[Rfam]
RNA sequence: UUUCCAUUGGUGCAAAUCCAAUCACCUUGAUUUGAUGUGGGAUGAAAAGCAAUUCCCCAUUGGUAGCGAAUGGUCAUCAAUCCAUUGAGCGGGGAAAAU
Number, nucleotide and partner (000 for none) at each position: 001u000002u000003u000004c000005c000006a000007u021008u020009g019010g018011u000012g000013c000014a000015a000016a000017u000018c010019c009020a008021a007022u000023c000024a000025c000026c000027u000028u000029g000030a000031u000032u000033u000034g000035a000036u000037g000038u000039g000040g000041g000042a000043u000044g000045a000046a000047a000048a000049g000050c000051a000052a000053u000054u000055c094056c093057c092058c091059a085060u084061u000062g082063g081064u076065a000066g074067c073068g000069a000070a000071u000072g000073g067074u066075c000076a064077u000078c000079a000080a000081u063082c062083c000084a060085u059086u000087g000088a000089g000090c000091g058092g057093g056094g055095a000096a000097a000098a000099u000
RNA: Plastid-rps12 3UTR RNA